[Rfam]
Record summary
Shown here is an 86-nucleotide sequence, a member of the family "GA-cis RNA". The family's RNA type in Rfam is small RNA.

RNA sequence: AUGAGGAGGUCCCAAUGAUGCGCAGCAUCAUUUUGCAUGGGACCGACGACUUGCCGCCGAAGCGUAGCUAGGGGGCCGUUCAGAUG
Number, nucleotide and partner (000 for none) at each position: 001a000002u000003g000004a000005g000006g000007a000008g044009g043010u042011c041012c040013c039014a000015a031016u030017g029018a028019u027020g026021c000022g000023c000024a000025g000026c020027a019028u018029c017030a016031u015032u000033u000034u000035g000036c000037a000038u000039g013040g012041g011042a010043c009044c008045g000046a000047c000048g000049a000050c000051u000052u000053g076054c075055c074056g000057c072058c071059g000060a000061a000062g068063c067064g000065u000066a000067g063068c062069u000070a000071g058072g057073g000074g055075g054076c053077c000078g000079u000080u000081c000082a000083g000084a000085u000086g000
The sequence is in the family's curated seed alignment.